[Rfam]
RNA sequence: UGUAAAUAUCAGCAAACCCGUCGAAAGGCGGCGACGCAAAGCCAUAGGGUCUAAGCCGAAAGGUAUGACAGCCGGUUGCCGUU
Numbered sequence: 001u002g003u004a005a006a007u008a009u010c011a012g013c014a015a016a017c018c019c020g021u022c023g024a025a026a027g028g029c030g031g032c033g034a035c036g037c038a039a040a041g042c043c044a045u046a047g048g049g050u051c052u053a054a055g056c057c058g059a060a061a062g063g064u065a066u067g068a069c070a071g072c073c074g075g076u077u078g079c080c081g082u083u
Base pairs, nucleotide, nucleotide: 012037013036018031019030020029021028022027040077041076042075043074047073048072049069050068051067056063057062
RNA: c-di-GMP-I riboswitch aptamer